The record is a 200-nucleotide RNA sequence from Oryza meridionalis, which matches "MIR1435 microRNA precursor family" in Rfam. A search with the family's covariance model found it, with a score of 98 bits. The base pairs follow the family's consensus structure, which was predicted with RNAalifold. Its family is annotated with miRNA-mediated post-transcriptional gene silencing and RISC complex in the Gene Ontology.

RNA sequence: UAGUUUUAUCCCAAGUCAAAACUUUUCUAAAUUUACUCAAAUUUAUAGAAAAAUGCACCAAUAUCUACAAUAACAAAUAAGUAUACUAUCAAGACAUAUUUCAUGAUGUAUUUAAUGAAACUAAUUUGAUGUUGUGAAUGUUGAUGCAUUUUUCUAUAAACUCAGGCAAGUUAAAGAAGUUUGACUUAGGAGAAAACUAA
Numbered sequence: 001u002a003g004u005u006u007u008a009u010c011c012c013a014a015g016u017c018a019a020a021a022c023u024u025u026u027c028u029a030a031a032u033u034u035a036c037u038c039a040a041a042u043u044u045a046u047a048g049a050a051a052a053a054u055g056c057a058c059c060a061a062u063a064u065c066u067a068c069a070a071u072a073a074c075a076a077a078u079a080a081g082u083a084u085a086c087u088a089u090c091a092a093g094a095c096a097u098a099u100u101u102c103a104u105g106a107u108g109u110a111u112u113u114a115a116u117g118a119a120a121c122u123a124a125u126u127u128g129a130u131g132u133u134g135u136g137a138a139u140g141u142u143g144a145u146g147c148a149u150u151u152u153u154c155u156a157u158a159a160a161c162u163c164a165g166g167c168a169a170g171u172u173a174a175a176g177a178a179g180u181u182u183g184a185c186u187u188a189g190g191a192g193a194a195a196a197c198u199a200a
Base pairs, nucleotide, nucleotide: 005195006194007193009191011189013187014186015185016184017183018182019181020180022179023178024177025176026175032170033169034168036166046156047155048154049153050152051151052150053149056146057145060142061141062140063139064138066136067135068134069133074128075127076126077125078124